[Rfam]
RNA sequence: AUUCAUAUAAAAAUAUUUACUCGUAUAACUUGGACAACAGGGUCCAAGGUUUCUACAGGGAACCGAUAAUCUCCCGGCUACGAGUCUCUUCAUCCUUGAU
Numbered sequence: 001a002u003u004c005a006u007a008u009a010a011a012a013a014u015a016u017u018u019a020c021u022c023g024u025a026u027a028a029c030u031u032g033g034a035c036a037a038c039a040g041g042g043u044c045c046a047a048g049g050u051u052u053c054u055a056c057a058g059g060g061a062a063c064c065g066a067u068a069a070u071c072u073c074c075c076g077g078c079u080a081c082g083a084g085u086c087u088c089u090u091c092a093u094c095c096u097u098g099a100u
Base pairs, nucleotide, nucleotide: 019085020084021083022082023081024080025079029048030047031046032045033044034043035042058075059074060073061072062070
Dot-bracket structure: ..................(((((((...(((((((......))))))).........(((((.......).))))...)))))))...............